The family of this 105-nucleotide sequence from Paenibacillus dendritiformis is "TPP riboswitch aptamer (THI element)".
The family's consensus secondary structure is taken from published work.
Rfam describes the family as follows. Vitamin B(1) in its active form thiamin pyrophosphate (TPP) is an essential coenzyme that is synthesised by coupling of pyrimidine and thiazole moieties in bacteria.
RNA sequence: GAAAUCCGCUAGGGGAGCCGCGCAAGGCGGCUGAGACAAGAGACGCUUGGACCCUUUGAACCUGAUCCGGUUAAUACCGGCGUAGGGAAGUGGAGACGGCCUUCA
Dot-bracket structure: .....(((((((((..(((((.....)))))......(((.....)))...)))).....((((..((((......))))..))))..)))))............